A member of the RNA family "Ribosomal protein L20 leader" from Paenibacillus sp. YN15, 142 nucleotides long.
Gene Ontology term of the family: regulation of gene expression.
[Rfam]
RNA sequence: GCUAUUAAGAAGAAGCGCCCGCUUCUCACCUGACCGACAGAGCGUUGGCUGGUUCUAGUCACUUAAGUGAACGCUUAGCUGUGUUGCUUAUGACGCGAGAUCAGGAUGUGGGCGGUUAGUGCCUGCAUCCUUUUUUUAGGUU
Numbered sequence: 001g002c003u004a005u006u007a008a009g010a011a012g013a014a015g016c017g018c019c020c021g022c023u024u025c026u027c028a029c030c031u032g033a034c035c036g037a038c039a040g041a042g043c044g045u046u047g048g049c050u051g052g053u054u055c056u057a058g059u060c061a062c063u064u065a066a067g068u069g070a071a072c073g074c075u076u077a078g079c080u081g082u083g084u085u086g087c088u089u090a091u092g093a094c095g096c097g098a099g100a101u102c103a104g105g106a107u108g109u110g111g112g113c114g115g116u117u118a119g120u121g122c123c124u125g126c127a128u129c130c131u132u133u134u135u136u137u138a139g140g141u142u
Stems, first nucleotide, its partner, number of pairs: 011026006028053003034048005105129010

A search with the family's covariance model found it, with a score of 59 bits.